[Rfam]
RNA: Small nucleolar RNA U2-19
Organism: Nannospalax galili
RNA sequence: GAUCAGUGAUGAAAAUAGCCAAAUCUGAGCAUCAGAAGACCUUUGGGUCUGUAGGAUGCAUGAUCUCCACAGUUCUGAGA
Number, nucleotide and partner (000 for none) at each position: 001g000002a000003u000004c000005a000006g000007u000008g000009a000010u000011g000012a000013a000014a000015a000016u000017a000018g000019c000020c000021a000022a000023a000024u000025c000026u000027g000028a000029g059030c058031a057032u056033c055034a000035g000036a000037a050038g049039a048040c047041c000042u000043u000044u000045g000046g000047g040048u039049c038050u037051g000052u000053a000054g000055g033056a032057u031058g030059c029060a000061u000062g000063a000064u000065c000066u000067c000068c000069a000070c000071a000072g000073u000074u000075c000076u000077g000078a000079g000080a000